[Rfam]
RNA sequence: GAAAAAAAUCGUGAAUACCCUCAUAUAAUAAUGGGAAUAGGCCCAUAAGUUUCUACCUGGUUACCGAAAUAACCGGACUAUGAGGGGGAGUCAAUUGCCC
Numbered sequence: 001g002a003a004a005a006a007a008a009u010c011g012u013g014a015a016u017a018c019c020c021u022c023a024u025a026u027a028a029u030a031a032u033g034g035g036a037a038u039a040g041g042c043c044c045a046u047a048a049g050u051u052u053c054u055a056c057c058u059g060g061u062u063a064c065c066g067a068a069a070u071a072a073c074c075g076g077a078c079u080a081u082g083a084g085g086g087g088g089a090g091u092c093a094a095u096u097g098c099c100c
Stems, first nucleotide, its partner, number of pairs: 018086008029048001031046005057076007
Dot-bracket structure: .................((((((((...(.(((((......))))).)........(((((((......)))))))..))))))))..............
Purine riboswitch aptamer: a 100-nucleotide RNA from Bacillus benzoevorans.
Riboswitches are metabolite binding domains within certain messenger RNAs that serve as precision sensors for their corresponding targets.